The family of this 73-nucleotide RNA sequence from Richelia sinica is "Cyano-1 RNA".
Pairs were carried over by alignment from the consensus structure, which is taken from published work.
[Rfam]
RNA sequence: UCGUGUGUGAGGAGCAAGUUUAAGAAAGGCGCUUGGGGUGGAAACACGGCAACACUCCCAGGCGCUUUUCCAA
Numbered sequence: 001u002c003g004u005g006u007g008u009g010a011g012g013a014g015c016a017a018g019u020u021u022a023a024g025a026a027a028g029g030c031g032c033u034u035g036g037g038g039u040g041g042a043a044a045c046a047c048g049g050c051a052a053c054a055c056u057c058c059c060a061g062g063c064g065c066u067u068u069u070c071c072a073a
Base pairs, nucleotide, nucleotide: 025069026068027067028066029065030064031063035059036058037057038055039054040053
About this RNA: The source organism's lineage runs through Bacteria, Bacillati, Cyanobacteriota, Nostocales and Richelia sinica. Rfam 15.1 lists 283 matches to the family in 194 species.